RNA sequence: AGAGUGUUAUGAUGUUGGAGUGGGAUGCUCCGAGUCUAGCUCAGGGCUGCUCUCUGGUUUGUGCCAGAGAGU
Numbered sequence: 001a002g003a004g005u006g007u008u009a010u011g012a013u014g015u016u017g018g019a020g021u022g023g024g025a026u027g028c029u030c031c032g033a034g035u036c037u038a039g040c041u042c043a044g045g046g047c048u049g050c051u052c053u054c055u056g057g058u059u060u061g062u063g064c065c066a067g068a069g070a071g072u
Stems, first nucleotide, its partner, number of pairs: 002042004011036003017031006049072009
The family of this 72-nucleotide RNA from Vagococcus entomophilus is "L17 ribosomal protein downstream element". Rfam classes the family as a cis-regulatory element. The match comes from Rfam's covariance-model search (56 bits). Pairs were carried over by alignment from the consensus structure, which is taken from published work. The source organism's lineage runs through Bacteria, Bacillati, Bacillota, Lactobacillales and Vagococcus.